RNA sequence: UUCAUAAACGUCAUCAUCAUUCGUAUAACUCCGCGAUAGGGGCGGGGGUCUCUACGGGAAGCCGAUACUUCCUUGCUACGAAUAUCGUUUCGCCAAAC
Number, nucleotide and partner (000 for none) at each position: 001u000002u000003c000004a000005u000006a000007a000008a000009c000010g000011u000012c000013a000014u000015c000016a000017u000018c000019a083020u082021u081022c080023g079024u078025a077026u000027a000028a000029c047030u046031c045032c044033g043034c042035g000036a000037u000038a000039g000040g000041g000042g034043c033044g032045g031046g030047g029048g000049u000050c000051u000052c000053u000054a000055c000056g073057g072058g071059a070060a069061g068062c000063c000064g000065a000066u000067a000068c061069u060070u059071c058072c057073u056074u000075g000076c000077u025078a024079c023080g022081a021082a020083u019084a000085u000086c000087g000088u000089u000090u000091c000092g000093c000094c000095a000096a000097a000098c000
RNA: Purine riboswitch aptamer
Organism: Cohnella nanjingensis